[Rfam]
RNA sequence: GAUAAUAAUAGGCAAACCUAUCGAAAGAUUGGGACGCAAAACCGUGGAUCUAAGGGCUAGUGUCUAUGAUUGCCAGGUUGCAGUA
Numbered sequence: 001g002a003u004a005a006u007a008a009u010a011g012g013c014a015a016a017c018c019u020a021u022c023g024a025a026a027g028a029u030u031g032g033g034a035c036g037c038a039a040a041a042c043c044g045u046g047g048a049u050c051u052a053a054g055g056g057c058u059a060g061u062g063u064c065u066a067u068g069a070u071u072g073c074c075a076g077g078u079u080g081c082a083g084u085a
Base pairs, nucleotide, nucleotide: 012037013036017032018031020029021028022027040079041078042077043076045075046074047073048070049069050068055064056063057062
c-di-GMP-I riboswitch aptamer: an 85-nucleotide sequence from Methylomusa anaerophila.
The source organism's lineage runs through Bacteria, Bacillati, Negativicutes, Sporomusaceae and Methylomusa.
From the family's description: GEMM was predicted in a large-scale screen for bacterial structured RNA regulatory elements.
It scores 76 bits against the family's covariance model.